[Rfam]
RNA: Guanidine-II riboswitch aptamer (mini-ykkC)
Organism: Longimicrobium terrae
RNA sequence: GAGCGGGGACGGCCCCGUUUCUCCAAUACGCACGUGGGGACGGCCCCA
Numbered sequence: 001g002a003g004c005g006g007g008g009a010c011g012g013c014c015c016c017g018u019u020u021c022u023c024c025a026a027u028a029c030g031c032a033c034g035u036g037g038g039g040a041c042g043g044c045c046c047c048a
Base pairs, nucleotide, nucleotide: 001020002019003018004017005016006015007014008013035048036047037046038045039044